The record is an 80-nucleotide RNA sequence from Hermetia illucens, which matches "drz-agam-1 ribozyme" in Rfam.
Rfam 15.1 lists 10,507 matches to the family in 53 species.
Lineage of the source: Eukaryota > Eumetazoa > Eumetabola > Panorpida > Hermetia.

RNA sequence: CGCCAGCUGAACCUUAUCUCCACCUCCACGUGGUGAUCGCUGGGAGUUCUUUCUUAAUGAAAAACUGCAGACGGAGAAGG
Numbered sequence: 001c002g003c004c005a006g007c008u009g010a011a012c013c014u015u016a017u018c019u020c021c022a023c024c025u026c027c028a029c030g031u032g033g034u035g036a037u038c039g040c041u042g043g044g045a046g047u048u049c050u051u052u053c054u055u056a057a058u059g060a061a062a063a064a065c066u067g068c069a070g071a072c073g074g075a076g077a078a079g080g
Base pairs, nucleotide, nucleotide: 013080014079015078017076019074020073022034023033024032045066046065047064048063050061051060053059